[Rfam]
RNA sequence: UAGAAGAAUGUAGGCAAGGGAAGUCGGCAAAUUGGUUCCGUAACUUUGGGAAAAGGAAUGGCUCUAAGGGUUGAGGCGGGCGGCCCGGGGGCCGAGGGCGCGCGCGGCGCGGCUAUGCGCGCGCGCGCGCGGGACGCUGCGCGCGCCGGGCGGCGGGGCGCGCGCGCGCGCGGCGUCCGCCCGCCGGCGAACAACCGACUUAGAACUGGUACGGACACGGGGAAUCCGACUGUUUAAUUAAAACAAAGCAUUGCGAUGGCCGGAAACGGUGUUGACGCAAUGUGAUUUCUGCCCAGUGCUCUGAAUGUCAAAGUGAAGAAAUUCAACCAAGCGCGGGUAAACGGCGGGAGUAACUAUGACUCUCUUAAGGUAGCCAAAUGCCUCGUCAUCUAAUUAGUGACGCGCAUGAAUGGAUUAACGAGAUUCCCACUGUCCCUGUCUACUAUCUAGCGAAACCACAGCCAAGGGAACGGGCUUGGAAGA
Numbered sequence: 001u002a003g004a005a006g007a008a009u010g011u012a013g014g015c016a017a018g019g020g021a022a023g024u025c026g027g028c029a030a031a032u033u034g035g036u037u038c039c040g041u042a043a044c045u046u047u048g049g050g051a052a053a054a055g056g057a058a059u060g061g062c063u064c065u066a067a068g069g070g071u072u073g074a075g076g077c078g079g080g081c082g083g084c085c086c087g088g089g090g091g092c093c094g095a096g097g098g099c100g101c102g103c104g105c106g107g108c109g110c111g112g113c114u115a116u117g118c119g120c121g122c123g124c125g126c127g128c129g130c131g132g133g134a135c136g137c138u139g140c141g142c143g144c145g146c147c148g149g150g151c152g153g154c155g156g157g158g159c160g161c162g163c164g165c166g167c168g169c170g171c172g173g174c175g176u177c178c179g180c181c182c183g184c185c186g187g188c189g190a191a192c193a194a195c196c197g198a199c200u201u202a203g204a205a206c207u208g209g210u211a212c213g214g215a216c217a218c219g220g221g222g223a224a225u226c227c228g229a230c231u232g233u234u235u236a237a238u239u240a241a242a243a244c245a246a247a248g249c250a251u252u253g254c255g256a257u258g259g260c261c262g263g264a265a266a267c268g269g270u271g272u273u274g275a276c277g278c279a280a281u282g283u284g285a286u287u288u289c290u291g292c293c294c295a296g297u298g299c300u301c302u303g304a305a306u307g308u309c310a311a312a313g314u315g316a317a318g319a320a321a322u323u324c325a326a327c328c329a330a331g332c333g334c335g336g337g338u339a340a341a342c343g344g345c346g347g348g349a350g351u352a353a354c355u356a357u358g359a360c361u362c363u364c365u366u367a368a369g370g371u372a373g374c375c376a377a378a379u380g381c382c383u384c385g386u387c388a389u390c391u392a393a394u395u396a397g398u399g400a401c402g403c404g405c406a407u408g409a410a411u412g413g414a415u416u417a418a419c420g421a422g423a424u425u426c427c428c429a430c431u432g433u434c435c436c437u438g439u440c441u442a443c444u445a446u447c448u449a450g451c452g453a454a455a456c457c458a459c460a461g462c463c464a465a466g467g468g469a470a471c472g473g474g475c476u477u478g479g480a481a482g483a
Stems, first nucleotide, its partner, number of pairs: 001449004010443007018435003035059005044049001060207002063204006069196005075185009084158003092153003097147013114133001116131006208212001220428007227420002231245003248283008259270004287414003291345003296342002298338004303334001306333003314325004346364006365369001385401005462479005
Rfam assigns this 483-nucleotide part of an RNA from Porphyridium purpureum to the family "Eukaryotic large subunit ribosomal RNA". NCBI's taxonomy places the organism under Eukaryota, Rhodophyta, Bangiophyceae, Porphyridiales, Porphyridium.